[Rfam]
RNA sequence: GUGAGGUGACGAAGAAAUUCAUGGUCUGUCAAUCCACUGAUAAUAAAAAUCAUGAUGUCAGUCAUGAAAUCCCGACAGGUUCUGAUCAC
Numbered sequence: 001g002u003g004a005g006g007u008g009a010c011g012a013a014g015a016a017a018u019u020c021a022u023g024g025u026c027u028g029u030c031a032a033u034c035c036a037c038u039g040a041u042a043a044u045a046a047a048a049a050u051c052a053u054g055a056u057g058u059c060a061g062u063c064a065u066g067a068a069a070u071c072c073c074g075a076c077a078g079g080u081u082c083u084g085a086u087c088a089c
Stems, first nucleotide, its partner, number of pairs: 001089004
Rfam assigns this 89-nucleotide RNA from Phoenix dactylifera to the family "Small nucleolar RNA snoR14". The base pairs follow the family's consensus structure. The organism belongs to Phoenix, within Eukaryota. A search with the family's covariance model found it, with a score of 76 bits. A reference for the family is Brown et al. (2001), "Multiple snoRNA gene clusters from Arabidopsis", RNA.